[Rfam]
ASpks TB sRNA: a 75-nucleotide RNA sequence from Streptomyces malaysiensis. The source organism's lineage runs through Bacteria, Actinomycetota, Kitasatosporales, Streptomycetaceae and Streptomyces. A search with the family's covariance model found it, with a score of 77 bits. It is annotated as an antisense RNA.
RNA sequence: CUUCACCGACCCCAGCAGCAGUGGCCUGCCGUCCGCGCGGUCCUGCCCGUACGUGGCCAGCAGCGCCUGUGCCUC
Numbered sequence: 001c002u003u004c005a006c007c008g009a010c011c012c013c014a015g016c017a018g019c020a021g022u023g024g025c026c027u028g029c030c031g032u033c034c035g036c037g038c039g040g041u042c043c044u045g046c047c048c049g050u051a052c053g054u055g056g057c058c059a060g061c062a063g064c065g066c067c068u069g070u071g072c073c074u075c
Base pairs, nucleotide, nucleotide: 015025016024033069038065039064043060044059045058047056048055049054